Rfam assigns this 262-nucleotide RNA sequence from Dorea sp. D27 to the family "Bacterial large signal recognition particle RNA". Lineage of the source: Bacteria > Bacillota > Clostridia > Lachnospirales > Dorea. Gene Ontology terms of the family: signal recognition particle, plasma membrane targeting and SRP-dependent cotranslational protein targeting to membrane, signal sequence recognition. The base pairs follow the family's consensus structure, which is taken from published work. A reference for the family is Rosenblad et al. (2003), "SRPDB: Signal Recognition Particle Database", Nucleic Acids Res.
RNA sequence: UCGUGCAGCCGGGGUGUUAGCGGUACCUUGUACCUGCAAUCCGCUAUAGCAGGGGUGAUGUUACGCAGAGGGCAAAGAUUUGUAAAGCUGCCCUUGACAAGUGGCGUUGAGGCUUGGGUCUUACGCGACGGAAAUCUGUGAAUCGUGUCAGGUCGGGAACGAAGCAGCACUAAGCAGAAUCUUCCGGGUGCCGUAAGGGUGCCUGGGCUGAGUUAACUGUCAAGGUAACGUUUAUGGAUUUCGUUCGAAGCGUAACGCACGA
Number, nucleotide and partner (000 for none) at each position: 001u262002c261003g260004u259005g258006c257007a000008g056009c055010c054011g029012g028013g027014g026015u025016g024017u023018u022019a000020g000021c000022g018023g017024u016025a015026c014027c013028u012029u011030g000031u000032a000033c053034c052035u051036g050037c049038a000039a000040u000041c000042c000043g000044c000045u000046a000047u000048a000049g037050c036051a035052g034053g033054g010055g009056u008057g000058a000059u000060g000061u255062u254063a253064c252065g251066c250067a000068g000069a000070g246071g245072g244073c243074a000075a000076a241077g240078a239079u238080u237081u236082g235083u234084a233085a232086a000087g000088c000089u227090g226091c000092c000093c224094u223095u222096g221097a220098c219099a000100a000101g217102u216103g214104g213105c212106g000107u000108u000109g000110a000111g209112g208113c207114u206115u205116g204117g203118g202119u201120c197121u196122u195123a194124c193125g192126c188127g000128a000129c186130g185131g184132a183133a182134a000135u178136c177137u176138g175139u174140g000141a000142a000143u000144c000145g170146u169147g168148u167149c000150a000151g000152g000153u162154c161155g160156g000157g000158a000159a000160c155161g154162a153163a000164g000165c000166a000167g148168c147169a146170c145171u000172a000173a000174g139175c138176a137177g136178a135179a000180u000181c000182u133183u132184c131185c130186g129187g000188g126189u000190g000191c000192c125193g124194u123195a122196a121197g120198g000199g000200u000201g119202c118203c117204u116205g115206g114207g113208c112209u111210g000211a000212g105213u104214u103215a000216a102217c101218u000219g098220u097221c096222a095223a094224g093225g000226u090227a089228a000229c000230g000231u000232u085233u084234a083235u082236g081237g080238a079239u078240u077241u076242c000243g073244u072245u071246c070247g000248a000249a000250g066251c065252g064253u063254a062255a061256c000257g006258c005259a004260c003261g002262a001